[Rfam]
RNA sequence: UAGGUAGAAGCCUGUUGGUUAGGGCAUAUAGCUGUUAACUAUAGUGUUGUGGGAUCGAAGCCCAUCUAUCUAG
Numbered sequence: 001u002a003g004g005u006a007g008a009a010g011c012c013u014g015u016u017g018g019u020u021a022g023g024g025c026a027u028a029u030a031g032c033u034g035u036u037a038a039c040u041a042u043a044g045u046g047u048u049g050u051g052g053g054a055u056c057g058a059a060g061c062c063c064a065u066c067u068a069u070c071u072a073g
Base pairs, nucleotide, nucleotide: 001072002071003070004069005068006067007066010025011024012023013022027043028042029041030040031039049065050064051063052062053061
Rfam assigns this 73-nucleotide RNA sequence from Callaeas wilsoni to the family "tRNA". The source organism's lineage runs through Eukaryota, Opisthokonta, Eumetazoa, Bilateria and Callaeas. The family's consensus secondary structure is taken from published work.